About this RNA:
Shown here is a 76-nucleotide RNA, a member of the family "L13-Bacteroidia ribosomal protein leader". The literature on the family includes a 2020 paper in BMC Microbiol by Eckert and Weinberg, "Discovery of 20 novel ribosomal leader candidates in bacteria and archaea". Rfam's curators put it in the seed alignment.
RNA sequence: UGGGGCACGCUUAGAGCCCCAAGACAUGGUUGUGUUAAUAGCGUCGCCUUUGGCCGGACGGCGCGGUUAGUGAAUC
Numbered sequence: 001u002g003g004g005g006c007a008c009g010c011u012u013a014g015a016g017c018c019c020c021a022a023g024a025c026a027u028g029g030u031u032g033u034g035u036u037a038a039u040a041g042c043g044u045c046g047c048c049u050u051u052g053g054c055c056g057g058a059c060g061g062c063g064c065g066g067u068u069a070g071u072g073a074a075u076c
Stems, first nucleotide, its partner, number of pairs: 001021006035070005041064006048057002